The record is a 139-nucleotide RNA from Vagococcus silagei, which matches "Ribosomal protein L20 leader" in Rfam. Rfam describes the family as follows. This family is a putative r-protein leader autoregulatory structure found in B. subtilis and other low-GC Gram-positive bacteria. It is located in the 5' untranslated regions of mRNAs encoding initiation factor 3 followed by ribosomal proteins L35 and L20 (infC-rpmI-rplT). A Rho-independent transcription terminator structure that is probably involved in regulation is included at the 3' end. NCBI's taxonomy places the organism under Bacteria, Bacillati, Bacilli, Enterococcaceae, Vagococcus. It is annotated as a cis-regulatory leader.
[Rfam]
Nucleotides: 139
Base pairs, nucleotide, nucleotide: 011026012025013024014023015022016021028052029051030050034047035046036045037044038043102125103124104123105122106121107120108119109118
Number, partner (000 for none) and nucleotide at each position: 001000g002000a003000g004000a005000u006000a007000a008000a009000g010000c011026a012025g013024a014023a015022g016021c017000a018000c019000c020000c021016g022015c023014u024013u025012c026011u027000c028052g029051c030050c031000u032000u033000a034047g035046u036045u037044a038043g039000u040000u041000u042000g043038c044037u045036a046035a047034c048000u049000g050030g051029g052028c053000u054000a055000g056000a057000u058000a059000a060000g061000g062000a063000u064000a065000a066000u067000u068000c069000u070000u071000u072000u073000u074000u075000c076000a077000u078000u079000u080000u081000a082000u083000g084000a085000a086000a087000a088000g089000u090000g091000a092000a093000u094000u095000u096000u097000u098000u099000g100000g101000u102125g103124c104123g105122g106121g107120u108119c109118u110000g111000u112000a113000u114000a115000u116000a117000a118109g119108g120107a121106c122105u123104c124103g125102u126000u127000u128000u129000u130000u131000u132000c133000u134000g135000u136000g137000u138000u139000u